The record is a 102-nucleotide RNA sequence from Fusarium duplospermum, which matches "Small nucleolar RNA Z13/snr52" in Rfam. Taxonomically the source falls in Fusarium solani species complex (Eukaryota, Ascomycota, saccharomyceta, sordariomyceta). It is annotated as a C/D-box small nucleolar RNA. It scores 93 bits against the family's covariance model. Its family is annotated with RNA processing and nucleolus in the Gene Ontology.

RNA sequence: CCCUCCCAUAUGAUGAAAUAUUUCGGAUGUAAAACAUUACAUGUCGGAAAAGCGCAAAAAACAAUGUCGAGAUUUCCGUUGCCUUCCUUCUGAUCUGGGAGA
Number, nucleotide and partner (000 for none) at each position: 001c000002c000003c101004u100005c099006c000007c000008a000009u000010a000011u000012g000013a000014u000015g000016a000017a000018a000019u000020a000021u000022u000023u000024c078025g077026g076027a075028u000029g000030u000031a000032a000033a000034a000035c000036a000037u000038u000039a000040c000041a000042u000043g000044u000045c000046g000047g000048a000049a000050a000051a000052g000053c000054g000055c000056a000057a000058a000059a000060a000061a000062c000063a000064a000065u000066g000067u000068c000069g000070a000071g000072a000073u000074u000075u027076c026077c025078g024079u000080u000081g000082c000083c000084u000085u000086c000087c000088u000089u000090c000091u000092g000093a000094u000095c000096u000097g000098g000099g005100a004101g003102a000